[Rfam]
RNA sequence: GCUUUUUUCCCCCCAGGCCUGUUGGUGUAUACUACAGAGAAGCCUGCAAGGUCUUGGUGGGGGAAGGC
Numbered sequence: 001g002c003u004u005u006u007u008u009c010c011c012c013c014c015a016g017g018c019c020u021g022u023u024g025g026u027g028u029a030u031a032c033u034a035c036a037g038a039g040a041a042g043c044c045u046g047c048a049a050g051g052u053c054u055u056g057g058u059g060g061g062g063g064a065a066g067g068c
Base pairs, nucleotide, nucleotide: 001068002067003066004065008062009061010060011059014057015054016053017052020048021047024044025043026042027035028034
Dot-bracket structure: ((((...((((..((((..((..(((((.....))......)))..))...)))..).))))..))))
MAT2A 3'UTR stem loop A: a 68-nucleotide RNA from Scleropages formosus. On this family, see Parker et al., Genome Res 2011: "New families of human regulatory RNA structures identified by comparative analysis of vertebrate genomes". The match comes from Rfam's covariance-model search (63 bits). The family's consensus secondary structure is taken from published work.